[Rfam]
RNA sequence: UGCAUAGGCUGCCUUAUCGUUCCGCUAUCAGGAUAGCGGAAAGGAAAGUCCGGGCAACAUAGAGCGUCGUACUUCCUAACGGGAAGUCCUUGGCGGAAACGUCAUGGGAGAAAGUGCAACAGAAAACAAACCGUCCCGACAAGUCGGGAUAAGGGUGAAAUGGUGAGGUAAGAGCUCACCGCUCCGACAGUGAUGAAGGAGGCAUGGUAAACCUUACGAGUUGAAAGAUCAAAUAGGUUCUGCAAGAAGUGGCUCGCUUCGAUUUGGCAUUAGUCAGAAUGUAGAAUGGGUAGAUUGAUAGAUUCUAGUAGCAAUACUAGAGCCAGAGAAAUGAUAAGGAUCCCUCCCGAUAGCUAUCGGGAUUGGGAUACAGAACCCGGCUUAUAGGCCUAUAUUAUUA
Numbered sequence: 001u002g003c004a005u006a007g008g009c010u011g012c013c014u015u016a017u018c019g020u021u022c023c024g025c026u027a028u029c030a031g032g033a034u035a036g037c038g039g040a041a042a043g044g045a046a047a048g049u050c051c052g053g054g055c056a057a058c059a060u061a062g063a064g065c066g067u068c069g070u071a072c073u074u075c076c077u078a079a080c081g082g083g084a085a086g087u088c089c090u091u092g093g094c095g096g097a098a099a100c101g102u103c104a105u106g107g108g109a110g111a112a113a114g115u116g117c118a119a120c121a122g123a124a125a126a127c128a129a130a131c132c133g134u135c136c137c138g139a140c141a142a143g144u145c146g147g148g149a150u151a152a153g154g155g156u157g158a159a160a161u162g163g164u165g166a167g168g169u170a171a172g173a174g175c176u177c178a179c180c181g182c183u184c185c186g187a188c189a190g191u192g193a194u195g196a197a198g199g200a201g202g203c204a205u206g207g208u209a210a211a212c213c214u215u216a217c218g219a220g221u222u223g224a225a226a227g228a229u230c231a232a233a234u235a236g237g238u239u240c241u242g243c244a245a246g247a248a249g250u251g252g253c254u255c256g257c258u259u260c261g262a263u264u265u266g267g268c269a270u271u272a273g274u275c276a277g278a279a280u281g282u283a284g285a286a287u288g289g290g291u292a293g294a295u296u297g298a299u300a301g302a303u304u305c306u307a308g309u310a311g312c313a314a315u316a317c318u319a320g321a322g323c324c325a326g327a328g329a330a331a332u333g334a335u336a337a338g339g340a341u342c343c344c345u346c347c348c349g350a351u352a353g354c355u356a357u358c359g360g361g362a363u364u365g366g367g368a369u370a371c372a373g374a375a376c377c378c379g380g381c382u383u384a385u386a387g388g389c390c391u392a393u394a395u396u397a398u399u400a
Base pairs, nucleotide, nucleotide: 002395004393005392006391007390008389009388010387011385012339013338014337015336016335017334018333020041021040022039023038024037025036026035027034028033046383047382048381050380051379052378053377054376055223056222057221058220064274065273067219068218069217070216071215072086073085074084075083076082087108088106090104109214110213114212115211116208117207131154132153133150134149135148136147137146138145139144162180163179164178165177166176167175181203182201183200184199185198188195189194227296228295229294230293237287238286239285240284241283242282270278303322304321305320306319307318308317309316310315
The record is a 400-nucleotide RNA sequence from Reichenbachiella faecimaris, which matches "Bacterial RNase P class A" in Rfam. Pairs were carried over by alignment from the consensus structure, which is taken from published work.